RNA: U4 spliceosomal RNA
RNA sequence: AUCCGAGUGCACGGGCGUUUUCCUUCUCCGUGAAGCGAUAAGCUGAGAGAGGAAUUUUGCUAGUUGAAAACUAUACACAAACCGCUCCUGUUUGAUUUAUUCGGGCAGGGAAUUUUUGGAACCUUUUUUC
Numbered sequence: 001a002u003c004c005g006a007g008u009g010c011a012c013g014g015g016c017g018u019u020u021u022c023c024u025u026c027u028c029c030g031u032g033a034a035g036c037g038a039u040a041a042g043c044u045g046a047g048a049g050a051g052g053a054a055u056u057u058u059g060c061u062a063g064u065u066g067a068a069a070a071c072u073a074u075a076c077a078c079a080a081a082c083c084g085c086u087c088c089u090g091u092u093u094g095a096u097u098u099a100u101u102c103g104g105g106c107a108g109g110g111a112a113u114u115u116u117u118g119g120a121a122c123c124u125u126u127u128u129u130c
Stems, first nucleotide, its partner, number of pairs: 020054005026049003034044003086110010